[Rfam]
RNA sequence: CAUCCCCGUGAAGAACGAUUAUAUCGAAAUUAAAAGUAGUGGACUGAUAUCUACUUGAUGAUAACUAUUUCUGAGGGGUA
Numbered sequence: 001c002a003u004c005c006c007c008g009u010g011a012a013g014a015a016c017g018a019u020u021a022u023a024u025c026g027a028a029a030u031u032a033a034a035a036g037u038a039g040u041g042g043a044c045u046g047a048u049a050u051c052u053a054c055u056u057g058a059u060g061a062u063a064a065c066u067a068u069u070u071c072u073g074a075g076g077g078g079u080a
Stems, first nucleotide, its partner, number of pairs: 002079005
Rfam assigns this 80-nucleotide RNA from Carnegiea gigantea to the family "Small nucleolar RNA R21". The organism belongs to Carnegiea, within Eukaryota. The literature on the family includes a 2001 paper in J Mol Biol by Barneche et al., "Identification of 66 box C/D snoRNAs in Arabidopsis thaliana: extensive gene duplications generated multiple isoforms predicting new ribosomal RNA 2'-O-methylation sites".